[Rfam]
RNA sequence: CGCUUCGGCCCUUGAGUCCUUUUCCAUGGAGUGUACGGCCGCAACUCUUUUGUUGCUUAAUUUUGGCUCGACUCCACUAGCGCAUUGCUAGUUAUUGGACAAGCUUGAGUCAUUCUGAAGCAAGAUAUCUAUACCUCCAGCUUACUUUCCCGUUUCACUCCUUGCCUACCUCACGGUAAUUCUCAGGUGGAGUUUUGGGCUGUGCUGGGGAUAUC
Number, nucleotide and partner (000 for none) at each position: 001c000002g121003c120004u119005u118006c117007g116008g115009c000010c000011c109012u108013u107014g106015a105016g000017u000018c000019c103020u102021u101022u000023u099024c098025c097026a096027u076028g075029g074030a073031g072032u071033g000034u000035a000036c000037g068038g067039c066040c065041g000042c000043a062044a061045c000046u000047c000048u000049u000050u000051u000052g000053u000054u000055g000056c000057u000058u000059a000060a000061u044062u043063u000064u000065g040066g039067c038068u037069c000070g000071a032072c031073u030074c029075c028076a027077c091078u090079a089080g088081c087082g086083c000084a000085u000086u082087g081088c080089u079090a078091g077092u000093u000094a000095u000096u026097g025098g024099a023100c000101a021102a020103g019104c000105u015106u014107g013108a012109g011110u000111c000112a000113u000114u000115c008116u007117g006118a005119a004120g003121c002122a000123a000124g000125a000126u000127a000128u000129c000130u000131a000132u000133a000134c000135c210136u209137c208138c207139a206140g000141c000142u202143u000144a000145c199146u198147u197148u000149c000150c000151c000152g000153u000154u192155u191156c189157a188158c187159u000160c000161c000162u186163u185164g184165c000166c000167u000168a177169c176170c175171u000172c000173a000174c000175g170176g169177u168178a000179a000180u000181u000182c000183u000184c164185a163186g162187g158188u157189g156190g000191a155192g154193u000194u000195u000196u000197g147198g146199g145200c000201u000202g142203u000204g000205c000206u139207g138208g137209g136210g135211a000212u000213a000214u000215c000